[Rfam]
The record is a 41-nucleotide RNA from Sphenodon punctatus, which matches "MAT2A 3'UTR stem loop D" in Rfam. The base pairs follow the family's consensus structure, which is taken from published work. The family's RNA type in Rfam is cis-regulatory element.
RNA sequence: UCUGGGGCAGGGUGUAAGUACAGAGAAGCCCUUGUCUCAGA
Number, nucleotide and partner (000 for none) at each position: 001u041002c040003u039004g038005g037006g036007g035008c034009a032010g031011g030012g029013u028014g000015u000016a000017a000018g000019u000020a000021c000022a000023g000024a000025g000026a000027a000028g013029c012030c011031c010032u009033u000034g008035u007036c006037u005038c004039a003040g002041a001

The source organism's lineage runs through Eukaryota, Deuterostomia, Chordata, Amniota and Sphenodon.